The family of this 87-nucleotide RNA sequence from Sulfobacillus sp. hq2 is "Selenocysteine transfer RNA".
Rfam 15.1 lists 4,211 matches to the family in 3,344 species.
Pairs were carried over by alignment from the consensus structure, which is taken from published work.
The source organism's lineage runs through Bacteria, Bacillati, Clostridia, Eubacteriales and Sulfobacillus.
A search with the family's covariance model found it, with a score of 50 bits.
Rfam links the family to the GO term triplet codon-amino acid adaptor activity.
[Rfam]
RNA sequence: GACGGUCAUGGAACUGGGUUCCCCAUCGGCUGCAAACCGAUCGGCAAUCCCGAAGGGAUUGGUUGGGUUCGAUUCCCAAUGACCGUC
Numbered sequence: 001g002a003c004g005g006u007c008a009u010g011g012a013a014c015u016g017g018g019u020u021c022c023c024c025a026u027c028g029g030c031u032g033c034a035a036a037c038c039g040a041u042c043g044g045c046a047a048u049c050c051c052g053a054a055g056g057g058a059u060u061g062g063u064u065g066g067g068u069u070c071g072a073u074u075c076c077c078a079a080u081g082a083c084c085g086u087c
Stems, first nucleotide, its partner, number of pairs: 001087009010022005024043001025041005045061005064078004